The family of this 111-nucleotide RNA sequence from Streptomyces sp. YIM 130001 is "Streptomyces RNA 4115". It scores 90 bits against the family's covariance model. Pairs were carried over by alignment from the consensus structure. NCBI's taxonomy places the organism under Bacteria, Bacillati, Actinomycetota, Actinomycetes, Streptomyces. The family's RNA type in Rfam is small RNA. From the family's description: Identified by deep sequencing of transcriptome at the end of exponential growth phase.
RNA sequence: GCGUGGGUCGGCCCGCUGCGCACCGUCGUCAGUGGGCUGGGGGAUACCGCCGCCUUCAUCCCCGCGGGCGGCGUUCCGGUCCGGGAGGCGAGCAGCGUCUCCCGGACCGCA
Dot-bracket structure: ((...((.((((((((((...........))))))))))(....)..((((((((.(......).))))))))..))(((((((((((((.....))))))))))))))).